[Rfam]
RNA sequence: AUGCACGAUGCACCCCGGGCUACUCUUAUUAUCUCCAUGACGGUGAUAGCCCCAUUGCUCGUGCUAGAUUGUCGUCGUUUAGUGUUGCAGAUUAGCCUUUUGCUUUUUUCCACGGCUGAUCUGUGUCAAAAUAACGGCUACAUUU
Numbered sequence: 001a002u003g004c005a006c007g008a009u010g011c012a013c014c015c016c017g018g019g020c021u022a023c024u025c026u027u028a029u030u031a032u033c034u035c036c037a038u039g040a041c042g043g044u045g046a047u048a049g050c051c052c053c054a055u056u057g058c059u060c061g062u063g064c065u066a067g068a069u070u071g072u073c074g075u076c077g078u079u080u081a082g083u084g085u086u087g088c089a090g091a092u093u094a095g096c097c098u099u100u101u102g103c104u105u106u107u108u109u110c111c112a113c114g115g116c117u118g119a120u121c122u123g124u125g126u127c128a129a130a131a132u133a134a135c136g137g138c139u140a141c142a143u144u145u
Stems, first nucleotide, its partner, number of pairs: 003064006010058002017052005023045001024043002074138006083128002086125006095116003

The family of this 145-nucleotide RNA sequence from Cucumis melo is "small nucleolar RNA snoR134". A search with the family's covariance model found it, with a score of 120 bits. Lineage of the source: Eukaryota > Viridiplantae > Spermatophyta > Gunneridae > Cucumis. Rfam links the family to the GO terms RNA processing and nucleolus.